[Rfam]
RNA: Flavo-1 RNA
Organism: Flavobacterium indicum
RNA sequence: AAUUUGCGUGAGGGAUAGAGGCGGCAUCCUUUUUUUUACUGUGCCAAAGGAAGGAAAAAAAAGAUACAGCCGAAAGCCCGACCUGAA
Number, nucleotide and partner (000 for none) at each position: 001a000002a000003u000004u000005u000006g000007c000008g000009u000010g000011a000012g079013g078014g077015a000016u075017a000018g000019a000020g000021g070022c069023g000024g000025c000026a065027u064028c063029c000030u000031u000032u060033u059034u058035u057036u056037u055038a000039c053040u000041g000042u000043g000044c000045c000046a000047a000048a000049g000050g000051a000052a000053g039054g000055a037056a036057a035058a034059a033060a032061a000062a000063g028064a027065u026066a000067c000068a000069g022070c021071c000072g000073a000074a000075a016076g000077c014078c013079c012080g000081a000082c000083c000084u000085g000086a000087a000